Rfam assigns this 70-nucleotide sequence from Fukomys damarensis to the family "Small nucleolar RNA U2-30". It scores 85 bits against the family's covariance model.
RNA sequence: GAGCAAUGAUGAAAAGAUUUUAUGACCGACCUUUUUAACUAUGACGGUUUCUACACUUGAUCUGAGCGCA
Numbered sequence: 001g002a003g004c005a006a007u008g009a010u011g012a013a014a015a016g017a018u019u020u021u022a023u024g025a026c027c028g029a030c031c032u033u034u035u036u037a038a039c040u041a042u043g044a045c046g047g048u049u050u051c052u053a054c055a056c057u058u059g060a061u062c063u064g065a066g067c068g069c070a
Stems, first nucleotide, its partner, number of pairs: 001069001003067002013034004018029002
Gene Ontology terms of the family: nucleolus and RNA processing.
Lineage of the source: Eukaryota > Vertebrata > Amniota > Bathyergidae > Fukomys.
The family's RNA type in Rfam is C/D-box small nucleolar RNA.